[Rfam]
RNA sequence: UUUGGGCGUACAACAUCGGGGGACGUGUCCCCAACGUGGAGCUCAGGGAAAUGAACCUCACUAAUAGCAAGAGCUUAUUACAGACUUGGAAAAGUGGAACAUAAAGCGUUGGGUGGAGUUUGGUAGGGUAUAAAGAAAUACAGCCGAAGAAGUCAGACCCA
Numbered sequence: 001u002u003u004g005g006g007c008g009u010a011c012a013a014c015a016u017c018g019g020g021g022g023a024c025g026u027g028u029c030c031c032c033a034a035c036g037u038g039g040a041g042c043u044c045a046g047g048g049a050a051a052u053g054a055a056c057c058u059c060a061c062u063a064a065u066a067g068c069a070a071g072a073g074c075u076u077a078u079u080a081c082a083g084a085c086u087u088g089g090a091a092a093a094g095u096g097g098a099a100c101a102u103a104a105a106g107c108g109u110u111g112g113g114u115g116g117a118g119u120u121u122g123g124u125a126g127g128g129u130a131u132a133a134a135g136a137a138a139u140a141c142a143g144c145c146g147a148a149g150a151a152g153u154c155a156g157a158c159c160c161a
Stems, first nucleotide, its partner, number of pairs: 003045005011039001013037002018032001020031004047057002058097005071087003074083001110161005116154002119151003126144001128141003

The family of this 161-nucleotide sequence is "RT-3 RNA". The base pairs follow the family's consensus structure, which is taken from published work. Rfam's curators put it in the seed alignment.